[Rfam]
RNA: ASpks TB sRNA
Organism: Streptomyces sp. TLI_185
RNA sequence: CUUCAGCGACCCCAGCCACAGCGGUCUGCCCGGCUCCCGCUCCUGCCCGUAGGUGGCCAGCAGCGCUUCCGCCUC
Numbered sequence: 001c002u003u004c005a006g007c008g009a010c011c012c013c014a015g016c017c018a019c020a021g022c023g024g025u026c027u028g029c030c031c032g033g034c035u036c037c038c039g040c041u042c043c044u045g046c047c048c049g050u051a052g053g054u055g056g057c058c059a060g061c062a063g064c065g066c067u068u069c070c071g072c073c074u075c
Stems, first nucleotide, its partner, number of pairs: 015025003031071003038065002043060003047056003